Notes: The family of this 48-nucleotide RNA is "DUF3800-XI RNA". Rfam describes the family as follows. Actinobacteria, Firmicutes, Proteobacteria, Spirochaetes (1 example).
[Rfam]
RNA sequence: UGGGCUGGUCAUUAGACCUGGGUCCACCUGACGACGGGGCGAGUCCCC
Dot-bracket structure: ((((((((((....))))..))))))......................